Archaeal large subunit ribosomal RNA: a 371-nucleotide part of an RNA from uncultured marine crenarchaeote AD1000-325-A12. The source organism's lineage runs through Archaea, Thermoproteati, Nitrososphaerota, Nitrososphaeria and Nitrosopumilales.
RNA sequence: CGAGUACAAAGUAGACGAGGGAAUUCGGCAAAUUAGUCCUGUACCUUCGGAAGAAAGGAUACCUGCUUUUUUUAUGAGGAAUAGGAAUAGCAGGUCGCAGUGACAAGGGGGUCCCGACUGUUUAAUAAAAACACAGGAGACUGCUAGUCCGCAAGGAUGUGUAUAGUCUUUGAAACUUGGUCAGUGGCGGUACCUAAAACUCAAGUUCAAUUGAGCUAAGGGCCGCUUAACACCGGGAGUAACUCUGACUCUCUUAAGGUAGCCAAAUGCCUUGUCGGGUAAGUUCCGACGUGCAUGAAUAGUUCAACGAGGGCCCUACUGUCCCCGUCUGCAACUCGGUGAACCCACAGGGUGGACGAACAGUCCACCAA
Numbered sequence: 001c002g003a004g005u006a007c008a009a010a011g012u013a014g015a016c017g018a019g020g021g022a023a024u025u026c027g028g029c030a031a032a033u034u035a036g037u038c039c040u041g042u043a044c045c046u047u048c049g050g051a052a053g054a055a056a057g058g059a060u061a062c063c064u065g066c067u068u069u070u071u072u073u074a075u076g077a078g079g080a081a082u083a084g085g086a087a088u089a090g091c092a093g094g095u096c097g098c099a100g101u102g103a104c105a106a107g108g109g110g111g112u113c114c115c116g117a118c119u120g121u122u123u124a125a126u127a128a129a130a131a132c133a134c135a136g137g138a139g140a141c142u143g144c145u146a147g148u149c150c151g152c153a154a155g156g157a158u159g160u161g162u163a164u165a166g167u168c169u170u171u172g173a174a175a176c177u178u179g180g181u182c183a184g185u186g187g188c189g190g191u192a193c194c195u196a197a198a199a200c201u202c203a204a205g206u207u208c209a210a211u212u213g214a215g216c217u218a219a220g221g222g223c224c225g226c227u228u229a230a231c232a233c234c235g236g237g238a239g240u241a242a243c244u245c246u247g248a249c250u251c252u253c254u255u256a257a258g259g260u261a262g263c264c265a266a267a268u269g270c271c272u273u274g275u276c277g278g279g280u281a282a283g284u285u286c287c288g289a290c291g292u293g294c295a296u297g298a299a300u301a302g303u304u305c306a307a308c309g310a311g312g313g314c315c316c317u318a319c320u321g322u323c324c325c326c327g328u329c330u331g332c333a334a335c336u337c338g339g340u341g342a343a344c345c346c347a348c349a350g351g352g353u354g355g356a357c358g359a360a361c362a363g364u365c366c367a368c369c370a371a
Base pairs, nucleotide, nucleotide: 001338002337003336004335011332012331013330014329015328016327017326019324020323021322036060037059038058039057040056045050061095062094063093064092065091066090067089069087070086071085072084073083074082075081096100108317109316110315111314112313113312114311115309116308119133120132121131136171137170138169139168140167141166142165143164144161147158148157149156150155174304175303176302177301179234180233181232184231185230186227187226188225189224190223193222194221195220200215201214202213203212204211235253236252237251238250239249240248254258274290275289276288277287278286279285351369352368353367354366355365
Dot-bracket structure: ((((......(((((((.(((..............(((((....(....).....)))))(((((((.(((((((.....))))))).)))))))(...).......(((((((((..(((.........)))..(((((((((..((((....))))..)..))))))))..((((.(((..(((((((..(((....(((((......)))))....))))))))..)))))((((((.......))))))(...)...............((((((.....))))))..........))))...)).)))))))....))).)))))))..))))............(((((.........)))))..